[Rfam]
mir-8517 microRNA precursor family: a 108-nucleotide sequence from Plutella xylostella. The family's consensus secondary structure was predicted with RNAalifold. It scores 82 bits against the family's covariance model.

RNA sequence: UUAGUGGACGCUUUAGCUAUUGCACAGUUUUAUCCUUUUAUGUCAAAAAAAAAAUUGUUCUCUGUCAGAGAGUGACUAAACAGUUCAAUAGCUAAAGCGUCCACUAAC
Numbered sequence: 001u002u003a004g005u006g007g008a009c010g011c012u013u014u015a016g017c018u019a020u021u022g023c024a025c026a027g028u029u030u031u032a033u034c035c036u037u038u039u040a041u042g043u044c045a046a047a048a049a050a051a052a053a054a055u056u057g058u059u060c061u062c063u064g065u066c067a068g069a070g071a072g073u074g075a076c077u078a079a080a081c082a083g084u085u086c087a088a089u090a091g092c093u094a095a096a097g098c099g100u101c102c103a104c105u106a107a108c
Base pairs, nucleotide, nucleotide: 001107002106003105004104005103006102011097012096013095014094015093016092017091018090019089020088021087022086024084025083027081028080029069030068031067034064049059050058052056